[Rfam]
Alphaproteobacterial ar14: a 125-nucleotide RNA sequence from Neorhizobium sp. S3-V5DH. Gene Ontology term of the family: biological process involved in symbiotic interaction.
RNA sequence: AAAAUUCGGGCGACGCACUCCUCCUCCCAGCGUAAGCCCGAUGGGACUGGCGAUCCUCCUCCUCCCAAAUCGCCGGUCGUUACAAAUGACGCCCACCGGACCUCCUCCCCCGGUGGGCGUUAUUU
Numbered sequence: 001a002a003a004a005u006u007c008g009g010g011c012g013a014c015g016c017a018c019u020c021c022u023c024c025u026c027c028c029a030g031c032g033u034a035a036g037c038c039c040g041a042u043g044g045g046a047c048u049g050g051c052g053a054u055c056c057u058c059c060u061c062c063u064c065c066c067a068a069a070u071c072g073c074c075g076g077u078c079g080u081u082a083c084a085a086a087u088g089a090c091g092c093c094c095a096c097c098g099g100a101c102c103u104c105c106u107c108c109c110c111c112g113g114u115g116g117g118c119g120u121u122a123u124u125u
Base pairs, nucleotide, nucleotide: 007040008039009038011036013033014032015031016030045078046077047076048075049074050073051072052071053070054069089120090119091118092117093116094115095114096113097112098111099110
Smr14C2 was renamed NfeR1 (Nodule Formation Efficiency RNA) highly expressed in salt stress and during the symbiotic interaction on legume roots. Pairs were carried over by alignment from the consensus structure.